[Rfam]
RNA sequence: GUGAAAUGAUGAUGAAGUUUAUCCAUUCGCUGAAUGUGCUGCCCUGCUCUUCCCGCAGCUCUCAGCUCCUGUUCUGGGAACUCUGACUUGUGUAAGCUCCAGAUGCCCUCCAGGCUGGCAGCGUUCUGCUGUAUAUUUGGCAGGUGUGUGUGGUGGUCUUACUAGUAGGAAGAGAUGGUGGCAGCAGGGGUGGAACCCAAUCAGUUUAGGGUCCCACCCAAGAUGAAUGACUGAUGUCUGAUCAC
Number, nucleotide and partner (000 for none) at each position: 001g000002u000003g000004a000005a000006a000007u000008g000009a000010u244011g243012a242013u241014g000015a000016a000017g237018u236019u000020u234021a000022u000023c000024c229025a228026u227027u226028c225029g224030c222031u221032g000033a000034a000035u220036g000037u000038g185039c184040u183041g182042c180043c000044c178045u177046g176047c000048u174049c000050u171051u170052c169053c168054c000055g000056c000057a000058g089059c000060u000061c000062u085063c000064a000065g081066c000067u079068c078069c077070u076071g000072u000073u000074c000075u000076g070077g069078g068079a067080a000081c065082u000083c000084u000085g062086a000087c000088u000089u058090g000091u000092g162093u161094a160095a159096g158097c000098u156099c000100c000101a000102g000103a000104u000105g147106c146107c144108c000109u000110c140111c139112a138113g137114g136115c000116u000117g000118g132119c131120a130121g129122c128123g127124u000125u000126c000127u123128g122129c121130u120131g119132u118133a000134u000135a000136u114137u113138u112139g111140g110141c000142a000143g000144g107145u000146g106147u105148g000149u000150g000151u000152g000153g000154u000155g000156g098157u000158c096159u095160u094161a093162c092163u000164a000165g000166u000167a000168g053169g052170a051171a050172g000173a000174g048175a000176u046177g045178g044179u000180g042181g000182c041183a040184g039185c038186a000187g219188g218189g217190g000191u000192g214193g213194a212195a000196c210197c209198c000199a000200a000201u000202c000203a000204g000205u000206u000207u000208a000209g197210g196211g000212u194213c193214c192215c000216a000217c189218c188219c187220a035221a031222g030223a000224u029225g028226a027227a026228u025229g024230a000231c000232u000233g000234a020235u000236g018237u017238c000239u000240g000241a013242u012243c011244a010245c000
RNA: Small nucleolar RNA SNORD17